[Rfam]
Background
The family of this 97-nucleotide RNA sequence from Leersia perrieri is "Small nucleolar RNA R11/Z151". Gene Ontology terms of the family: RNA processing and nucleolus. The organism belongs to Leersia, within Eukaryota. Rfam 15.1 lists 802 matches to the family in 218 species.
RNA sequence: GAGCUCGUGAUGAUUCAGGUCUGAAAGGAUCUUAGCGGAUUUCUGUGAGGCGAUUCUGUCGCCGUCGAUCGCUCUGUGUUGUUACACACUGGAACUU
Dot-bracket structure: (((.(.......................................................................................).)))